[Rfam]
RNA sequence: UAUUUCCUUCGGGGUCGGGUGAAAUUCCCAACCGGCGGUGAUGAGGUGUAAUCCUCUUAGUCCGUGACCCGGACGCUUUUUUAGCGGACGGUGGAUCUGGUGAAAUUCCAGAGCCGACAGUAUAGUCUGGAUGGGAGAAGGAAUGA
Numbered sequence: 001u002a003u004u005u006c007c008u009u010c011g012g013g014g015u016c017g018g019g020u021g022a023a024a025u026u027c028c029c030a031a032c033c034g035g036c037g038g039u040g041a042u043g044a045g046g047u048g049u050a051a052u053c054c055u056c057u058u059a060g061u062c063c064g065u066g067a068c069c070c071g072g073a074c075g076c077u078u079u080u081u082u083a084g085c086g087g088a089c090g091g092u093g094g095a096u097c098u099g100g101u102g103a104a105a106u107u108c109c110a111g112a113g114c115c116g117a118c119a120g121u122a123u124a125g126u127c128u129g130g131a132u133g134g135g136a137g138a139a140g141g142a143a144u145g146a
Stems, first nucleotide, its partner, number of pairs: 004143007017029003031126002033116002035065004060114002069091002096112005118129003
Dot-bracket structure: ...(((((((......(((.......))).[[((((((.....................[[))))...((...................))....(((((.......)))))]])).(((....]]))).......)))))))...
Annotation:
FMN riboswitch aptamer (RFN element): a 146-nucleotide RNA sequence from Fictibacillus enclensis. NCBI's taxonomy places the organism under Bacteria, Bacillati, Bacilli, Caryophanales, Fictibacillus.